[Rfam]
Shown here is an 80-nucleotide RNA from Myotis myotis, a member of the family "Small nucleolar RNA U2-19". Rfam 15.1 lists 1,147 matches to the family in 531 species. Rfam classes the family as a C/D-box small nucleolar RNA. A reference for the family is Tycowski et al. (2004), "Guide RNAs with 5' Caps and Novel Box C/D snoRNA-like Domains for Modification of snRNAs in Metazoa", Curr Biol. Rfam links the family to the GO terms RNA processing and nucleolus.
RNA sequence: GGUCAGUGAUGAAAAUAGCCAAAUCUGCGCAUCAGAAGACCUUCCAGUCCACCUGAAGCAUAAUCUCGCUAGUUCUGAGA
Number, nucleotide and partner (000 for none) at each position: 001g000002g000003u000004c000005a000006g000007u000008g000009a000010u000011g000012a000013a000014a000015a000016u000017a000018g000019c000020c000021a000022a000023a000024u000025c000026u000027g000028c000029g059030c058031a000032u056033c055034a000035g000036a000037a000038g049039a048040c047041c000042u000043u000044c000045c000046a000047g040048u039049c038050c000051a000052c000053c000054u000055g033056a032057a000058g030059c029060a000061u000062a000063a000064u000065c000066u000067c000068g000069c000070u000071a000072g000073u000074u000075c000076u000077g000078a000079g000080a000